A member of the RNA family "Bag-1 internal ribosome entry site (IRES)" from Orycteropus afer, 373 nucleotides long.
This family represents the bag-1 internal ribosome entry site (IRES). When expressed the BAG-1 protein is known to enhance the anti-apoptotic properties of Bcl-2. Although bag-1 translation usually occurs via a cap-dependent mechanism it has been found to contain a IRES in its 5' UTR. Translation via the IRES has been found to be common following heat shock when cap-dependent scanning is compromised.
The literature on the family includes a 2001 paper in Oncogene by Coldwell et al., "The p36 isoform of BAG-1 is translated by internal ribosome entry following heat shock".
Taxonomically the source falls in Orycteropus afer (Eukaryota, Vertebrata, Teleostomi, Tetrapoda).
The base pairs follow the family's consensus structure, which was predicted with PFOLD.
Its family is annotated with ribosome binding in the Gene Ontology.
RNA sequence: UGGGCGGUCGACAAACGCGGGCCUGGCGGAGGGCGGCGGGCCGCGGAGAACGCGAGGCCACGGGGAGCGGCCGGGUCCCCGGAGGCGCGCCCUUCGGUCAGGUCGGGAGCCUCGCCAGGCUGAAGCCCCGGCCGACCGGAAGCCGCCUCGGUCUCAGCGUCCGUCCGUCCGGAGCAAAACCAGCGGACAUGACCGAUCCACCAGGGGCCCCGCUGCCGGCGCUCGCUGGCCGCGGGUGAAGAAGAAGAAAGUACAACCCCGCACGGCCCGGAGUGAGGAGAUGGCCCGGAGUGAGGAGAUGGCUCGGAGUGAGGAGAUGGCCCGGAGUGAGGAGAUGGCUCGGAACGAGGAGAUGGCCCGGAACGAGGAGAUG
Numbered sequence: 001u002g003g004g005c006g007g008u009c010g011a012c013a014a015a016c017g018c019g020g021g022c023c024u025g026g027c028g029g030a031g032g033g034c035g036g037c038g039g040g041c042c043g044c045g046g047a048g049a050a051c052g053c054g055a056g057g058c059c060a061c062g063g064g065g066a067g068c069g070g071c072c073g074g075g076u077c078c079c080c081g082g083a084g085g086c087g088c089g090c091c092c093u094u095c096g097g098u099c100a101g102g103u104c105g106g107g108a109g110c111c112u113c114g115c116c117a118g119g120c121u122g123a124a125g126c127c128c129c130g131g132c133c134g135a136c137c138g139g140a141a142g143c144c145g146c147c148u149c150g151g152u153c154u155c156a157g158c159g160u161c162c163g164u165c166c167g168u169c170c171g172g173a174g175c176a177a178a179a180c181c182a183g184c185g186g187a188c189a190u191g192a193c194c195g196a197u198c199c200a201c202c203a204g205g206g207g208c209c210c211c212g213c214u215g216c217c218g219g220c221g222c223u224c225g226c227u228g229g230c231c232g233c234g235g236g237u238g239a240a241g242a243a244g245a246a247g248a249a250a251g252u253a254c255a256a257c258c259c260c261g262c263a264c265g266g267c268c269c270g271g272a273g274u275g276a277g278g279a280g281a282u283g284g285c286c287c288g289g290a291g292u293g294a295g296g297a298g299a300u301g302g303c304u305c306g307g308a309g310u311g312a313g314g315a316g317a318u319g320g321c322c323c324g325g326a327g328u329g330a331g332g333a334g335a336u337g338g339c340u341c342g343g344a345a346c347g348a349g350g351a352g353a354u355g356g357c358c359c360g361g362a363a364c365g366a367g368g369a370g371a372u373g
Base pairs, nucleotide, nucleotide: 020104021103022102023101024100025099026098027097038093039092040091042089043053044052045051061082063080064079065078067076068075144355145354147352148351149350167188168187169186170185171184205224206223207222208221210219211218212217260275261274262273264271